speF leader: a 152-nucleotide RNA sequence from Paramesorhizobium deserti. Lineage of the source: Bacteria > Pseudomonadati > Hyphomicrobiales > Phyllobacteriaceae > Paramesorhizobium. It scores 112 bits against the family's covariance model. Pairs were carried over by alignment from the consensus structure, which was predicted with RNAalifold. Its family is annotated with regulation of gene expression in the Gene Ontology.
RNA sequence: UUUCGGUCGUCCAAAUACCGAAAUUACUGAAGAGGCACACCUUCAUUGCCGGCAGUGCGGAUGCGGUUCUCCCAAUUCCAAGCCAAGGCAGACAAAGCGGAAUAACGCGACGCUUUAGCGUUGUUCCAUCGCCGCAUGAACCUUCGCGUGUU
Number, nucleotide and partner (000 for none) at each position: 001u023002u022003u021004c020005g019006g018007u017008c000009g000010u000011c000012c000013a000014a000015a000016u000017a007018c006019c005020g004021a003022a002023a001024u000025u000026a000027c000028u000029g000030a000031a000032g000033a000034g050035g049036c048037a047038c000039a000040c000041c000042u000043u000044c000045a000046u000047u037048g036049c035050c034051g000052g000053c000054a000055g000056u000057g132058c131059g130060g000061a000062u000063g000064c000065g000066g000067u000068u000069c000070u000071c000072c000073c000074a000075a000076u000077u000078c000079c000080a000081a000082g000083c091084c000085a000086a000087g000088g000089c000090a000091g083092a000093c000094a000095a000096a000097g000098c000099g000100g115101a114102a000103u112104a000105a000106c000107g000108c000109g000110a000111c000112g103113c000114u101115u100116u000117a000118g000119c000120g000121u000122u000123g000124u000125u000126c000127c000128a000129u000130c059131g058132c057133c000134g000135c000136a000137u000138g000139a000140a000141c000142c000143u000144u000145c000146g000147c000148g000149u000150g000151u000152u000